A member of the RNA family "Bacterial large signal recognition particle RNA" from Solirubrobacter pauli, 263 nucleotides long. The organism belongs to Solirubrobacter, within Bacteria. It is annotated as a non-coding RNA gene. Clan: SRP clan. The base pairs follow the family's consensus structure, which is taken from published work. A reference for the family is Rosenblad et al. (2003), "SRPDB: Signal Recognition Particle Database", Nucleic Acids Res.
[Rfam]
RNA sequence: CCGUGCUAGGCGGGGAGGUAGCGGUGCCCUGUAUCCGCAAUCCGCUCUAGCGGGGCUGAAUUCCCUUUCGAGGGGCACGGCUCCAGGCCAACGUUCGCUGCCACGGCGUCGAUGGUUGGGUCCCGCAUGACGUCGGCCCGUGAACCAGGUCAGGUCCGGAAGGAAGCAGCCUUAAGCGGUCACCGGUGGGCGUGUCGGGGUCGCCUGACCGGAGUCAGUGAGGUGAGCGUCCCUGGAGGCCGACCUCGACGAAGGGUGCACGG
Numbered sequence: 001c002c003g004u005g006c007u008a009g010g011c012g013g014g015g016a017g018g019u020a021g022c023g024g025u026g027c028c029c030u031g032u033a034u035c036c037g038c039a040a041u042c043c044g045c046u047c048u049a050g051c052g053g054g055g056c057u058g059a060a061u062u063c064c065c066u067u068u069c070g071a072g073g074g075g076c077a078c079g080g081c082u083c084c085a086g087g088c089c090a091a092c093g094u095u096c097g098c099u100g101c102c103a104c105g106g107c108g109u110c111g112a113u114g115g116u117u118g119g120g121u122c123c124c125g126c127a128u129g130a131c132g133u134c135g136g137c138c139c140g141u142g143a144a145c146c147a148g149g150u151c152a153g154g155u156c157c158g159g160a161a162g163g164a165a166g167c168a169g170c171c172u173u174a175a176g177c178g179g180u181c182a183c184c185g186g187u188g189g190g191c192g193u194g195u196c197g198g199g200g201u202c203g204c205c206u207g208a209c210c211g212g213a214g215u216c217a218g219u220g221a222g223g224u225g226a227g228c229g230u231c232c233c234u235g236g237a238g239g240c241c242g243a244c245c246u247c248g249a250c251g252a253a254g255g256g257u258g259c260a261c262g263g
Stems, first nucleotide, its partner, number of pairs: 001263006009057003012030004017025001019023001034054005063256006072247004078242005083236005092229002095226005103219002105216003113211009122199004128190001131188005136181001138179004147172004155164003